[Rfam]
RNA sequence: UGUAAAUCUGAUAUUGUCGCCAUAGCUUUGAUUGUCGACGAACUUAAAGCCUCGCCAUCGUGCGGGGCUUU
Dot-bracket structure: ...............((((.(............).)))).......(((((((((......))))))))).

Rfam assigns this 71-nucleotide RNA sequence from Citrobacter koseri to the family "isrJ Hfq binding RNA". The organism belongs to Citrobacter koseri, within Bacteria. Pairs were carried over by alignment from the consensus structure, which was predicted with RNAalifold.